RNA sequence: AGAAGGCUUCCGCGGCGGUGACGUUUCGGGGGCCUUUUCUUUUGC
Numbered sequence: 001a002g003a004a005g006g007c008u009u010c011c012g013c014g015g016c017g018g019u020g021a022c023g024u025u026u027c028g029g030g031g032g033c034c035u036u037u038u039c040u041u042u043u044g045c
Stems, first nucleotide, its partner, number of pairs: 005034007014025004
Shown here is a 45-nucleotide sequence from Aminobacter sp. J15, a member of the family "ctRNA". The base pairs follow the family's consensus structure, which is taken from published work. On this family, see Venkova-Canova et al., Mol Microbiol 2004: "Two discrete elements are required for the replication of a repABC plasmid: an antisense RNA and a stem-loop structure".